[Rfam]
RNA sequence: GGUGAUAAACUGCGGUGUGCAAUAGACACAACGGACCCGGGGGCAGUACCCGGCGGCUCCACCAAAACGCCCGGAAAUCCGGGAAUUUUGACGGGGCCGAACUAGGAUCGACGUGUGUUGAAAAGCAUCGUUUUCGCCCGGGCUGAGUAACCCGCAUAAGGCUCAUCUUUAUAAGUGCAAACGAUAACGAAGCACUCGCAAUUGCAGCGUAA
Number, nucleotide and partner (000 for none) at each position: 001g138002g137003u136004g135005a134006u000007a000008a000009a000010c000011u000012g000013c000014g000015g128016u127017g126018u125019g000020c000021a000022a000023u000024a000025g000026a000027c117028a116029c115030a000031a114032c113033g112034g000035a000036c000037c053038c052039g051040g050041g049042g000043g000044c000045a000046g000047u000048a000049c041050c040051c039052g038053g037054c099055g098056g097057c096058u095059c094060c093061a000062c000063c000064a000065a000066a000067a000068c000069g000070c000071c000072c000073g000074g000075a000076a000077a000078u000079c000080c000081g000082g000083g000084a000085a000086u000087u000088u000089u000090g000091a000092c000093g060094g059095g058096g057097c056098c055099g054100a000101a000102c000103u000104a000105g000106g000107a000108u000109c000110g000111a000112c033113g032114u031115g029116u028117g027118u000119u000120g000121a000122a000123a000124a000125g018126c017127a016128u015129c000130g000131u000132u000133u000134u005135c004136g003137c002138c001139c154140g153141g152142g151143c000144u000145g000146a000147g000148u000149a000150a000151c142152c141153c140154g139155c000156a000157u000158a000159a000160g000161g000162c000163u000164c000165a000166u000167c000168u000169u000170u000171a000172u000173a000174a000175g000176u000177g000178c000179a000180a000181a000182c000183g000184a000185u000186a000187a000188c000189g000190a000191a000192g000193c000194a000195c000196u000197c000198g000199c000200a000201a000202u000203u000204g000205c000206a000207g000208c000209g000210u000211a000212a000
Annotation:
The record is a 212-nucleotide RNA sequence from Qipengyuania atrilutea, which matches "permuted transfer-messenger RNA" in Rfam. Gene Ontology term of the family: RNA catabolic process. Taxonomically the source falls in Qipengyuania (Bacteria, Pseudomonadati, Pseudomonadota, Sphingomonadales). The match comes from Rfam's covariance-model search (136 bits).